[Rfam]
RNA: mir-87 microRNA precursor family
Organism: Diabrotica balteata
RNA sequence: UUUUGGCAGGCUUGAAAUUUUGCCCUCCCGUUUUUUGUACUGGGUGAGCAAAGUUUCAGGUGUGUUAAAGG
Numbered sequence: 001u002u003u004u005g006g007c008a009g010g011c012u013u014g015a016a017a018u019u020u021u022g023c024c025c026u027c028c029c030g031u032u033u034u035u036u037g038u039a040c041u042g043g044g045u046g047a048g049c050a051a052a053g054u055u056u057c058a059g060g061u062g063u064g065u066u067a068a069a070g071g
Stems, first nucleotide, its partner, number of pairs: 002069006010061006017054005023048001025046001027044003